A member of the RNA family "Group II catalytic intron D1-D4-6" from Desulfobacter latus, 255 nucleotides long.
Lineage of the source: Bacteria > Pseudomonadati > Desulfobacteria > Desulfobacteraceae > Desulfobacter.
Rfam links the family to the GO term Group II intron splicing.
Rfam's curators write: Group II introns are found in rRNA, tRNA and mRNA of organelles in fungi, plants and protists, and also in mRNA in bacteria.
The match comes from Rfam's covariance-model search (103 bits).
The pairing is the family consensus, mapped onto this sequence.
RNA sequence: AGAGUCCCAUCUGAAUAAAGCCCAGCCAGCAGUUCAGUAGCAAAGCCCGAGGGUAAACCCGGUGACGGGAAUCCUAAGCCGGGCAUGAGUGAGGAUGCAGGCCCUGUAUUGAGCUCCGAAAAAAGUAUUAUUGUGGUCAUUGGAUAAAUUUCCACCAAGCGUGGUGAUGAAAGCCGACGUUCUCGAUAAAACGGAAGGCAGCAGUUCUCUAUACGUUCAGGCCAGAAUAGAGGACACCACCGUAGUCUGAGACCA
Numbered sequence: 001a002g003a004g005u006c007c008c009a010u011c012u013g014a015a016u017a018a019a020g021c022c023c024a025g026c027c028a029g030c031a032g033u034u035c036a037g038u039a040g041c042a043a044a045g046c047c048c049g050a051g052g053g054u055a056a057a058c059c060c061g062g063u064g065a066c067g068g069g070a071a072u073c074c075u076a077a078g079c080c081g082g083g084c085a086u087g088a089g090u091g092a093g094g095a096u097g098c099a100g101g102c103c104c105u106g107u108a109u110u111g112a113g114c115u116c117c118g119a120a121a122a123a124a125g126u127a128u129u130a131u132u133g134u135g136g137u138c139a140u141u142g143g144a145u146a147a148a149u150u151u152c153c154a155c156c157a158a159g160c161g162u163g164g165u166g167a168u169g170a171a172a173g174c175c176g177a178c179g180u181u182c183u184c185g186a187u188a189a190a191a192c193g194g195a196a197g198g199c200a201g202c203a204g205u206u207c208u209c210u211a212u213a214c215g216u217u218c219a220g221g222c223c224a225g226a227a228u229a230g231a232g233g234a235c236a237c238c239a240c241c242g243u244a245g246u247c248u249g250a251g252a253c254c255a
Stems, first nucleotide, its partner, number of pairs: 011037005020030002025222002041087002045084005051075003058069004110249001111247001113246003117242002133240005173199003178193004204235009214225001